The family of this 71-nucleotide sequence from Photobacterium proteolyticum is "RNA-OUT". The match comes from Rfam's covariance-model search (45 bits). NCBI's taxonomy places the organism under Bacteria, Pseudomonadota, Vibrionales, Vibrionaceae, Photobacterium. It is annotated as an antisense RNA. For this family Rfam cites "Insertion sequence IS10 anti-sense pairing initiates by an interaction between the 5' end of the target RNA and a loop in the anti-sense RNA" (Kittle et al., J Mol Biol, 1989). Rfam's curators write: Transposition of insertion sequence IS10 is regulated by an anti-sense RNA which inhibits transposase expression when IS10 is present in multiple copies per cell. The anti-sense RNA (RNA-OUT) consists of a stem domain topped by a flexibly paired loop; the 5' end of the target molecule, RNA-IN, is complementary to the top of the loop, and complementarity extends for 35 base-pairs down one side of RNA-OUT. This bacterial RNA is also found in the genomic sequence of eukaryotic organisms. This is probably due to vector contamination.
RNA sequence: UCACGCAUCUUGCUUUCAAUCUUUUGUGUUUGUGGUGAAUUCAUUAGAUCAGAAGGCAAGGUGCGUGUCUA
Dot-bracket structure: ..((((((((((((((...................(.((....)).).....)))))))))))))).....